Rfam assigns this 57-nucleotide RNA sequence from Prauserella muralis to the family "Actino-pnp RNA".

[Rfam]
RNA sequence: GCCGGUCCUCGGUAGUGGCUCCCGGGUAGUACCCGAGGGCUUCGAUCGAUGACCGGC
Numbered sequence: 001g002c003c004g005g006u007c008c009u010c011g012g013u014a015g016u017g018g019c020u021c022c023c024g025g026g027u028a029g030u031a032c033c034c035g036a037g038g039g040c041u042u043c044g045a046u047c048g049a050u051g052a053c054c055g056g057c
Base pairs, nucleotide, nucleotide: 001057002056003055004054005053006052007051009049010048011047012046013045017041018040019039020038021037023035024034025033026032027031

It scores 68 bits against the family's covariance model. Rfam classes the family as a cis-regulatory element.